[Rfam]
RNA sequence: ACAGUCUGAAAAUCACUUGGGGUCUACUAUGGCUCCUGGUGAGAUAACUGUGCCGACAGCAGAGGGAACAUUAAGCUUACUACCCAUGGUAAAGUGUGAGGAGUGAAACCCAUGUUCCUAUAAUC
Numbered sequence: 001a002c003a004g005u006c007u008g009a010a011a012a013u014c015a016c017u018u019g020g021g022g023u024c025u026a027c028u029a030u031g032g033c034u035c036c037u038g039g040u041g042a043g044a045u046a047a048c049u050g051u052g053c054c055g056a057c058a059g060c061a062g063a064g065g066g067a068a069c070a071u072u073a074a075g076c077u078u079a080c081u082a083c084c085c086a087u088g089g090u091a092a093a094g095u096g097u098g099a100g101g102a103g104u105g106a107a108a109c110c111c112a113u114g115u116u117c118c119u120a121u122a123a124u125c
Base pairs, nucleotide, nucleotide: 006050008048010045013042014041015040016039021034022033023032024031065118067116068115069114070113071112077106078105079104080103081102085098086097087096
A member of the RNA family "Small nucleolar RNA ACA64" from Bucco capensis, 125 nucleotides long. Its family is annotated with RNA processing and nucleolus in the Gene Ontology. By type it is an H/ACA-box small nucleolar RNA. A reference for the family is Schattner et al. (2006), "A computational screen for mammalian pseudouridylation guide H/ACA RNAs", RNA. A search with the family's covariance model found it, with a score of 75 bits. The family's consensus secondary structure was predicted with WAR.